[Rfam]
RNA: RNA-OUT
RNA sequence: ACACACAUUGUGUUGCCCGAUAAUUUUUUUUUACUACACUAUAGGGGCACAGGUUAUCGGGCAACACAAUGUGUAUAUA
Dot-bracket structure: ..((((((((((((((.(((((((((........................))))))))).)))))))))))))).....